About this RNA
This 59-nucleotide RNA sequence from Monodelphis domestica belongs to the Rfam family "mir-1545 microRNA precursor family". Rfam links the family to the GO terms RISC complex and miRNA-mediated post-transcriptional gene silencing. NCBI's taxonomy places the organism under Eukaryota, Deuterostomia, Gnathostomata, Teleostomi, Monodelphis. The family's consensus secondary structure was predicted with RNAalifold.
RNA sequence: AGUGUUCUGGGAUAGAUAGGCGAUCUCCUUGCAAUCCACCUUUCCAUCCUGGGCAUUGG
Numbered sequence: 001a002g003u004g005u006u007c008u009g010g011g012a013u014a015g016a017u018a019g020g021c022g023a024u025c026u027c028c029u030u031g032c033a034a035u036c037c038a039c040c041u042u043u044c045c046a047u048c049c050u051g052g053g054c055a056u057u058g059g
Stems, first nucleotide, its partner, number of pairs: 001057005007052007015044002018041001020039001022036003